[Rfam]
RNA: Bacterial small signal recognition particle RNA
RNA sequence: CGCGGCCCCUCGUGCGGCGCCAUCCUGCUGAACCCCCCCAGGGCCGGAAGGCAGCAAGGGCAGGUGGGCUCUGGCGGGUGCGCGAGGGGUCCUUCCC
Numbered sequence: 001c002g003c004g005g006c007c008c009c010u011c012g013u014g015c016g017g018c019g020c021c022a023u024c025c026u027g028c029u030g031a032a033c034c035c036c037c038c039c040a041g042g043g044c045c046g047g048a049a050g051g052c053a054g055c056a057a058g059g060g061c062a063g064g065u066g067g068g069c070u071c072u073g074g075c076g077g078g079u080g081c082g083c084g085a086g087g088g089g090u091c092c093u094u095c096c097c
Stems, first nucleotide, its partner, number of pairs: 004091011015078001018076005024068006035060003043052003